The record is a 130-nucleotide RNA sequence from Zhengella mangrovi, which matches "FMN riboswitch aptamer (RFN element)" in Rfam.
Rfam's curators write: The RFN element is a highly conserved domain that is found frequently in the 5'-untranslated regions of prokaryotic mRNAs that encode for flavin mononucleotide (FMN) biosynthesis and transport proteins. This element is a metabolite-dependent riboswitch that directly binds FMN in the absence of proteins. In Bacillus subtilis, the riboswitch most likely controls gene expression by causing premature transcription termination within the 5' untranslated region of the ribDEAHT operon and precluding access to the ribosome-binding site of ypaA mRNA.The FMN riboswitch structure, reported in present an FMN-bound six-stem junction, adopts a butterfly-like scaffold, stapled together by opposingly directed but nearly identically folded peripheral domains.
Pairs were carried over by alignment from the consensus structure, which is taken from published work.
RNA sequence: UCGCGUUCUCAGGGCGGGGUGAAAUUCCCCACCGGCGGUAUAGCCCGCGAGCGCUUCCGGCGACGGAAGGUCAGCAGAUCCGGUGUAAUUCCGGAGCCGACGGUCACAGUCCGGAUGGAAGAGAACCGCG
Number, nucleotide and partner (000 for none) at each position: 001u000002c000003g000004c000005g126006u125007u124008c123009u122010c121011a000012g000013g000014g000015c000016g000017g029018g028019g027020u000021g000022a000023a000024a000025u000026u000027c019028c018029c017030c000031a110032c109033c099034g098035g048036c047037g046038g045039u000040a000041u000042a000043g097044c096045c038046c037047g036048c035049g000050a000051g075052c074053g000054c000055u000056u000057c000058c000059g000060g000061c000062g000063a000064c000065g000066g000067a000068a000069g000070g000071u000072c000073a000074g052075c051076a000077g000078a000079u095080c094081c093082g092083g091084u000085g000086u000087a000088a000089u000090u000091c083092c082093g081094g080095a079096g044097c043098c034099g033100a000101c113102g112103g111104u000105c000106a000107c000108a000109g032110u031111c103112c102113g101114g000115a000116u000117g000118g000119a000120a000121g010122a009123g008124a007125a006126c005127c000128g000129c000130g000